The family of this 179-nucleotide RNA from Lacticaseibacillus paracasei is "Lysine riboswitch aptamer". The base pairs follow the family's consensus structure, which is taken from published work. Lineage of the source: Bacteria > Bacillota > Lactobacillales > Lactobacillaceae > Lacticaseibacillus paracasei.
[Rfam]
RNA sequence: CAAACAGAUAGAGGUUGCAACCAACAUGAGUAGCUUGAUCGAGCGGGAUCCUUCGUGAUGACAUCAAGCCAAAGGGGCGGUGCCGAAAUGGGGGCGCCGGGAUCGGCAAACCUGUUGGGCCAGGAUUGAAUAAGUCCUGUACUGUCGCUUAGAAACCUAAGCGGGGCGCUAUCAUUCAA
Numbered sequence: 001c002a003a004a005c006a007g008a009u010a011g012a013g014g015u016u017g018c019a020a021c022c023a024a025c026a027u028g029a030g031u032a033g034c035u036u037g038a039u040c041g042a043g044c045g046g047g048a049u050c051c052u053u054c055g056u057g058a059u060g061a062c063a064u065c066a067a068g069c070c071a072a073a074g075g076g077g078c079g080g081u082g083c084c085g086a087a088a089u090g091g092g093g094g095c096g097c098c099g100g101g102a103u104c105g106g107c108a109a110a111c112c113u114g115u116u117g118g119g120c121c122a123g124g125a126u127u128g129a130a131u132a133a134g135u136c137c138u139g140u141a142c143u144g145u146c147g148c149u150u151a152g153a154a155a156c157c158u159a160a161g162c163g164g165g166g167c168g169c170u171a172u173c174a175u176u177c178a179a
Base pairs, nucleotide, nucleotide: 007173008172009171010170011169017083018082019081021080022079025076033069034068035067036066037065038064039063087116088115089114090113091112092111096107097106098105117143118142121139122138123137124136125135126134127133145164146163147162148161149160150159151158